[Rfam]
RNA sequence: UUGCCUUGAGGGGCCGCUGCCUCUAACCAGGACUUUCCAUGACCAGGAGGCAGAGGCCCCUCAUAGGCGGC
Numbered sequence: 001u002u003g004c005c006u007u008g009a010g011g012g013g014c015c016g017c018u019g020c021c022u023c024u025a026a027c028c029a030g031g032a033c034u035u036u037c038c039a040u041g042a043c044c045a046g047g048a049g050g051c052a053g054a055g056g057c058c059c060c061u062c063a064u065a066g067g068c069g070g071c
Base pairs, nucleotide, nucleotide: 001070002069004067005066006065008062009061010060011059012058013057014056015055017053019051020050021049022048023046024045028041029040031038